[Rfam]
RNA: Small nucleolar RNA Z279/snoR105/snoR108
Organism: Solanum lycopersicum
RNA sequence: GGGAUAUGAUAGGUGGUCAAUACUCGCAAUAAAAUAUGCGAGAUGGGCGUUCCAGCUCAGCCUGGUUACGACAAUUUGAGCGCUCUCGUUCAAACCAAUCUGAUCCC
Numbered sequence: 001g002g003g004a005u006a007u008g009a010u011a012g013g014u015g016g017u018c019a020a021u022a023c024u025c026g027c028a029a030u031a032a033a034a035u036a037u038g039c040g041a042g043a044u045g046g047g048c049g050u051u052c053c054a055g056c057u058c059a060g061c062c063u064g065g066u067u068a069c070g071a072c073a074a075u076u077u078g079a080g081c082g083c084u085c086u087c088g089u090u091c092a093a094a095c096c097a098a099u100c101u102g103a104u105c106c107c
Stems, first nucleotide, its partner, number of pairs: 001107004014097004023042005045085007063078002065075002